[Rfam]
RNA: freshwater-2 RNA
RNA sequence: CAACACAAUACGGUGUUUUAUGCGGCACACCAGCCGCGUAGUAGGCUAGAACCUACAGACUUAUCUUUAAGAAACAAACAAAAUG
Numbered sequence: 001c002a003a004c005a006c007a008a009u010a011c012g013g014u015g016u017u018u019u020a021u022g023c024g025g026c027a028c029a030c031c032a033g034c035c036g037c038g039u040a041g042u043a044g045g046c047u048a049g050a051a052c053c054u055a056c057a058g059a060c061u062u063a064u065c066u067u068u069a070a071g072a073a074a075c076a077a078a079c080a081a082a083a084u085g
Stems, first nucleotide, its partner, number of pairs: 002017005019040007041056004
Dot-bracket structure: .(((((......))))).(((((((........)))))))((((........)))).............................